RNA sequence: AAAGCAGCUGCAAUUGCAGUGCUCCCUGCUGUGGGAUCACUGCCAUGUCCCUGCUGAGAGCAACUCUGUUAGCACUGUCUGUGCUUUCACCUGCACCGUGGUGAAAGUGUUUGUUUUUAACAUGGACAAGC
Number, nucleotide and partner (000 for none) at each position: 001a000002a000003a055004g054005c053006a052007g051008c000009u000010g000011c000012a000013a000014u000015u000016g000017c042018a041019g040020u039021g038022c000023u036024c035025c034026c000027u000028g000029c000030u000031g000032u000033g000034g025035g024036a023037u000038c021039a020040c019041u018042g017043c000044c000045a000046u000047g000048u000049c000050c000051c007052u006053g005054c004055u003056g000057a000058g000059a000060g000061c000062a000063a000064c125065u124066c000067u122068g121069u120070u119071a118072g117073c000074a115075c000076u000077g000078u000079c000080u000081g000082u109083g108084c107085u106086u105087u104088c103089a102090c101091c100092u000093g000094c000095a000096c000097c000098g000099u000100g091101g090102u089103g088104a087105a086106a085107g084108u083109g082110u000111u000112u000113g000114u000115u074116u000117u072118u071119a070120a069121c068122a067123u000124g065125g064126a000127c000128a000129a000130g000131c000
The family of this 131-nucleotide RNA from Neodrepanis coruscans is "Small nucleolar RNA SNORA69". From the family's description: U69 is a member of the H/ACA class of small nucleolar RNAs (snoRNAs) which act as guides in the the modification of uridines to pseudouridines. Rfam 15.1 lists 808 matches to the family in 584 species.